This 105-nucleotide RNA from Paenibacillus prosopidis belongs to the Rfam family "Guanidine-I riboswitch aptamer". About the family: This family represents a conserved RNA structure found upstream of the ykkC and yxkD genes in Bacillus subtilis and related genes in other bacteria. The pairing is the family consensus, mapped onto this sequence. The match comes from Rfam's covariance-model search (90 bits).

[Rfam]
RNA sequence: ACCAUUGUUUUCUAGGGUUCCGCGACAAAUUGUGUGUCGGACAGGUCCGAGAGAAGACGCACAGCUUCGCCGCUGUGUCCACGGAGGGAUAAAAGCCCGGGAGGA
Numbered sequence: 001a002c003c004a005u006u007g008u009u010u011u012c013u014a015g016g017g018u019u020c021c022g023c024g025a026c027a028a029a030u031u032g033u034g035u036g037u038c039g040g041a042c043a044g045g046u047c048c049g050a051g052a053g054a055a056g057a058c059g060c061a062c063a064g065c066u067u068c069g070c071c072g073c074u075g076u077g078u079c080c081a082c083g084g085a086g087g088g089a090u091a092a093a094a095g096c097c098c099g100g101g102a103g104g105a
Stems, first nucleotide, its partner, number of pairs: 007058006015048002020045002022042001023039005059078007080100001082103001086098003